[Rfam]
RNA sequence: ACAGUACAAACUGAACAGGCGGCCGCCCCCAUGUGGGGCACGGUGCGCCGGGCCGCAGCGCGCGGCAGCAGAUGAAAAUGCACAGGCACAUCUGCGGGACAGUA
Numbered sequence: 001a002c003a004g005u006a007c008a009a010a011c012u013g014a015a016c017a018g019g020c021g022g023c024c025g026c027c028c029c030c031a032u033g034u035g036g037g038g039c040a041c042g043g044u045g046c047g048c049c050g051g052g053c054c055g056c057a058g059c060g061c062g063c064g065g066c067a068g069c070a071g072a073u074g075a076a077a078a079u080g081c082a083c084a085g086g087c088a089c090a091u092c093u094g095c096g097g098g099a100c101a102g103u104a
Stems, first nucleotide, its partner, number of pairs: 010103004016098001018049004023043002025039004052066005068095006
RNA: NiCo (Nickel/Cobalt) riboswitch aptamer